[Rfam]
Nucleotides: 104
Base pairs, nucleotide, nucleotide: 006099007098008097009096010095011094012093013092020046021045022044023043048084049083050082051080052079055078056077057076062070
Number, partner (000 for none) and nucleotide at each position: 001000a002000g003000a004000a005000c006099u007098u008097c009096g010095a011094c012093g013092g014000g015000a016000g017000a018000g019000u020046c021045c022044g023043g024000c025000c026000a027000c028000g029000g030000u031000c032000c033000u034000c035000g036000u037000g038000a039000c040000c041000g042000c043023c044022c045021g046020g047000c048084g049083c050082c051080g052079a053000a054000g055078g056077a057076g058000c059000a060000a061000a062070c063000c064000c065000u066000c067000c068000c069000c070062g071000g072000g073000a074000a075000u076057c077056u078055c079052u080051c081000a082050g083049g084048c085000c086000c087000c088000c089000g090000u091000a092013c093012c094011g095010u096009c097008g098007a099006g100000g101000c102000g103000a104000g

This 104-nucleotide sequence from Cellulosimicrobium arenosum belongs to the Rfam family "Glycine riboswitch aptamer". The base pairs follow the family's consensus structure.